Shown here is a 110-nucleotide RNA sequence from Pullulanibacillus pueri, a member of the family "epsC RNA". It is annotated as a cis-regulatory element. It scores 108 bits against the family's covariance model.

RNA sequence: AGGUAAUGCCUCCUCACCUUUAUCAAUGGAGACACUCGGCCAUGCUGUGGGUUAAAUAACCUUAGACGUUGAUCGUCGAAGGUAUGGUGUGAGGUUGGGUUGAAUGCCCA
Numbered sequence: 001a002g003g004u005a006a007u008g009c010c011u012c013c014u015c016a017c018c019u020u021u022a023u024c025a026a027u028g029g030a031g032a033c034a035c036u037c038g039g040c041c042a043u044g045c046u047g048u049g050g051g052u053u054a055a056a057u058a059a060c061c062u063u064a065g066a067c068g069u070u071g072a073u074c075g076u077c078g079a080a081g082g083u084a085u086g087g088u089g090u091g092a093g094g095u096u097g098g099g100u101u102g103a104a105u106g107c108c109c110a
Stems, first nucleotide, its partner, number of pairs: 001019004007034002010031004035093004039088008049062005065077004096110005